The family of this 103-nucleotide RNA from Eubacterium sp. CAG:38 is "THF (Tetrahydrofolate) riboswitch aptamer". Rfam links the family to the GO term tetrahydrofolate metabolic process. For this family Rfam cites "A eubacterial riboswitch class that senses the coenzyme tetrahydrofolate" (Ames et al., Chem Biol, 2010).
RNA sequence: AACAGAGUAGAAGUCAUGCGUAAAGUGUCAAUGGACGGGAAGUUGCCAUUGGACGAAAAAUCCCUGUAAAGCGGAUUUGCGAUGUGCCUUCGCAUCCGCUGUC
Numbered sequence: 001a002a003c004a005g006a007g008u009a010g011a012a013g014u015c016a017u018g019c020g021u022a023a024a025g026u027g028u029c030a031a032u033g034g035a036c037g038g039g040a041a042g043u044u045g046c047c048a049u050u051g052g053a054c055g056a057a058a059a060a061u062c063c064c065u066g067u068a069a070a071g072c073g074g075a076u077u078u079g080c081g082a083u084g085u086g087c088c089u090u091c092g093c094a095u096c097c098g099c100u101g102u103c
Base pairs, nucleotide, nucleotide: 002102003101004100005099010091011090012089013088015086016085017084018083019081020080021079025054026053028052029051030050031049032048033047034046038097039096040095042093058078059077060076061075062074063073

It scores 72 bits against the family's covariance model. The source organism's lineage runs through Bacteria, Bacillati, Bacillota, Eubacteriales and Eubacterium.